[Rfam]
RNA sequence: AAGCGUUCUCAGGGCGGGGCGAAAUUCCCCACCGGCGGUAGCAGCCAAGCGAUCCGAAAAGAUCAUGCGGCUGGAGCCCGCGAGCGCUUCGGAAGCUGCCACGCAUCCGAAGGUCAGCAGAUCCGGUCAGACUCCGGAGCCGACGGUUACAGUCCGGAUGGAAGAGAGCAAGC
Numbered sequence: 001a002a003g004c005g006u007u008c009u010c011a012g013g014g015c016g017g018g019g020c021g022a023a024a025u026u027c028c029c030c031a032c033c034g035g036c037g038g039u040a041g042c043a044g045c046c047a048a049g050c051g052a053u054c055c056g057a058a059a060a061g062a063u064c065a066u067g068c069g070g071c072u073g074g075a076g077c078c079c080g081c082g083a084g085c086g087c088u089u090c091g092g093a094a095g096c097u098g099c100c101a102c103g104c105a106u107c108c109g110a111a112g113g114u115c116a117g118c119a120g121a122u123c124c125g126g127u128c129a130g131a132c133u134c135c136g137g138a139g140c141c142g143a144c145g146g147u148u149a150c151a152g153u154c155c156g157g158a159u160g161g162a163a164g165a166g167a168g169c170a171a172g173c
Base pairs, nucleotide, nucleotide: 005169006168007167008166009165010164017029018028019027031153032152033142034141035081036080037079038078084118085117122138123137124136125135126134144156145155146154
The record is a 173-nucleotide RNA from Sinorhizobium terangae, which matches "FMN riboswitch aptamer (RFN element)" in Rfam.
It scores 99 bits against the family's covariance model.
The organism belongs to Sinorhizobium, within Bacteria.